[Rfam]
RNA sequence: AGUUGUGGUGGUUUUCUUUCUGGCCCAUUUGUUAAGUUUUCAAAUGGGCCUGACUCUGCCACAUAUAUUCUAUAGGAGCUAGGAAAGGCUUGAUGAUAAAGAGAUCUCUCUAGCCUUUCCCACAUCAGAAAUUGGCUCCCACAUGG
Numbered sequence: 001a002g003u004u005g006u007g008g009u010g011g012u013u014u015u016c017u018u019u020c021u022g023g024c025c026c027a028u029u030u031g032u033u034a035a036g037u038u039u040u041c042a043a044a045u046g047g048g049c050c051u052g053a054c055u056c057u058g059c060c061a062c063a064u065a066u067a068u069u070c071u072a073u074a075g076g077a078g079c080u081a082g083g084a085a086a087g088g089c090u091u092g093a094u095g096a097u098a099a100a101g102a103g104a105u106c107u108c109u110c111u112a113g114c115c116u117u118u119c120c121c122a123c124a125u126c127a128g129a130a131a132u133u134g135g136c137u138c139c140c141a142c143a144u145g146g
Stems, first nucleotide, its partner, number of pairs: 005062007022050003026046006075139006081090002107129003
RNA: Small nucleolar RNA SNORA12